This 68-nucleotide RNA belongs to the Rfam family "S15-Flavobacteria ribosomal protein leader". Rfam classes the family as a cis-regulatory leader. The family is grouped with related families in Rfam's "Ribosomal Protein S15 Leader clan". It is one of the family's seed sequences. For this family Rfam cites "Discovery of 20 novel ribosomal leader candidates in bacteria and archaea" (Eckert and Weinberg, BMC Microbiol, 2020).
[Rfam]
RNA sequence: UACCUUUGCAAACUAAUUACGAUAACCGUAGUUAACAGCAUAAAAAUUAUUUAAACAAUAUUGGAAUG
Numbered sequence: 001u002a003c004c005u006u007u008g009c010a011a012a013c014u015a016a017u018u019a020c021g022a023u024a025a026c027c028g029u030a031g032u033u034a035a036c037a038g039c040a041u042a043a044a045a046a047u048u049a050u051u052u053a054a055a056c057a058a059u060a061u062u063g064g065a066a067u068g
Stems, first nucleotide, its partner, number of pairs: 014034006